[Rfam]
RNA sequence: GUUUAGCCCUGAUGGAAGUGAAAAUCAUUUUGUUUUGUCACGUUGAGCGAAGUCGAAACAUUUAAAUACAAAACAAAAUAUUGUAACGAACAGCAGGAAAAUGG
Numbered sequence: 001g002u003u004u005a006g007c008c009c010u011g012a013u014g015g016a017a018g019u020g021a022a023a024a025u026c027a028u029u030u031u032g033u034u035u036u037g038u039c040a041c042g043u044u045g046a047g048c049g050a051a052g053u054c055g056a057a058a059c060a061u062u063u064a065a066a067u068a069c070a071a072a073a074c075a076a077a078a079u080a081u082u083g084u085a086a087c088g089a090a091c092a093g094c095a096g097g098a099a100a101a102u103g104g
Stems, first nucleotide, its partner, number of pairs: 009096003013092002018087002023082003029077010

This 104-nucleotide sequence from Flavobacterium haoranii belongs to the Rfam family "Flavo-1 RNA". The source organism's lineage runs through Bacteria, Bacteroidota, Flavobacteriales, Flavobacteriaceae and Flavobacterium. It is annotated as a small RNA.